Source information
This 53-nucleotide sequence from Salmo trutta belongs to the Rfam family "U7 small nuclear RNA". The organism belongs to Salmo, within Eukaryota.
[Rfam]
RNA sequence: AAAUGUGAUAUUUUAGUAUUUCUCUAGUAGGUUUCCUCAAGGAGAAAGCCCCC
Numbered sequence: 001a002a003a004u005g006u007g008a009u010a011u012u013u014u015a016g017u018a019u020u021u022c023u024c025u026a027g028u029a030g031g032u033u034u035c036c037u038c039a040a041g042g043a044g045a046a047a048g049c050c051c052c053c
Stems, first nucleotide, its partner, number of pairs: 030050005036044003

A search with the family's covariance model found it, with a score of 36 bits.
A reference for the family is Spycher et al. (1994), "3' end processing of mouse histone pre-mRNA: evidence for additional base-pairing between U7 snRNA and pre-mRNA", Nucleic Acids Res.
Animal histone pre-mRNAs are spliced by a different mechanism than nuclear pre-mRNAs and self-splicing introns. This processing involves the U7 snRNP, which contains only one RNA species: U7.